[Rfam]
A member of the RNA family "c-di-AMP riboswitch aptamer (ydaO/yuaA leader)" from Actinomyces sp. HMSC065F12, 172 nucleotides long. Lineage of the source: Bacteria > Bacillati > Actinomycetes > Actinomycetaceae > Actinomyces.
RNA sequence: ACACACCAUCCGCUUAAGCCAAACAAUGGUGAGCGUGGGAAGCACCUGUUUGGCGCGGGGGACCCAAAACCUGACGUGAUCGCCUGGCGAUCUUGGGGUGAAGUCCCAAAGUGGACCGGACACUCCAGUCCGAACCCGACAGCUGACCUCGUAAGCGAAUAAGUGGAGAUUU
Numbered sequence: 001a002c003a004c005a006c007c008a009u010c011c012g013c014u015u016a017a018g019c020c021a022a023a024c025a026a027u028g029g030u031g032a033g034c035g036u037g038g039g040a041a042g043c044a045c046c047u048g049u050u051u052g053g054c055g056c057g058g059g060g061g062a063c064c065c066a067a068a069a070c071c072u073g074a075c076g077u078g079a080u081c082g083c084c085u086g087g088c089g090a091u092c093u094u095g096g097g098g099u100g101a102a103g104u105c106c107c108a109a110a111g112u113g114g115a116c117c118g119g120a121c122a123c124u125c126c127a128g129u130c131c132g133a134a135c136c137c138g139a140c141a142g143c144u145g146a147c148c149u150c151g152u153a154a155g156c157g158a159a160u161a162a163g164u165g166g167a168g169a170u171u172u
Base pairs, nucleotide, nucleotide: 011157012156013155014154018054019053020052021051022050023049024048025047055152056151057150058149059148060147065095066094096137097136098135104115105114106113118131119130120129121128